[Rfam]
RNA sequence: GACUAUUUCCUCCUCUUUGAAAGGAGGUGACGUUUGAUGAAAUUAAUUUUCACGCUAGUUGUAGCUCCACUAAUUGUGGAAAUAGUGACUACACUAUUCGACCAUUGGUUGGAUGAUCGGCACAACAAAAAGCGAUAAUAGUCGCCUUGAUCCAACCCACAACGCUUAAAAAUUUUUAAGUGAUAAA
Numbered sequence: 001g002a003c004u005a006u007u008u009c010c011u012c013c014u015c016u017u018u019g020a021a022a023g024g025a026g027g028u029g030a031c032g033u034u035u036g037a038u039g040a041a042a043u044u045a046a047u048u049u050u051c052a053c054g055c056u057a058g059u060u061g062u063a064g065c066u067c068c069a070c071u072a073a074u075u076g077u078g079g080a081a082a083u084a085g086u087g088a089c090u091a092c093a094c095u096a097u098u099c100g101a102c103c104a105u106u107g108g109u110u111g112g113a114u115g116a117u118c119g120g121c122a123c124a125a126c127a128a129a130a131a132g133c134g135a136u137a138a139u140a141g142u143c144g145c146c147u148u149g150a151u152c153c154a155a156c157c158c159a160c161a162a163c164g165c166u167u168a169a170a171a172a173u174u175u176u177u178a179a180g181u182g183a184u185a186a187a
Stems, first nucleotide, its partner, number of pairs: 001143007015026004028041001056128001058126005064121002066080005082097006098112006163182005